RNA sequence: UAGAGUUAAAGGUAUUUUAGAAUUUGUCUGUCAGAUUUUCUGGGUUUUACCAGAAAAUUUAA
Dot-bracket structure: .................................((((((((((......))))))))))...
Numbered sequence: 001u002a003g004a005g006u007u008a009a010a011g012g013u014a015u016u017u018u019a020g021a022a023u024u025u026g027u028c029u030g031u032c033a034g035a036u037u038u039u040c041u042g043g044g045u046u047u048u049a050c051c052a053g054a055a056a057a058u059u060u061a062a
Stems, first nucleotide, its partner, number of pairs: 034059010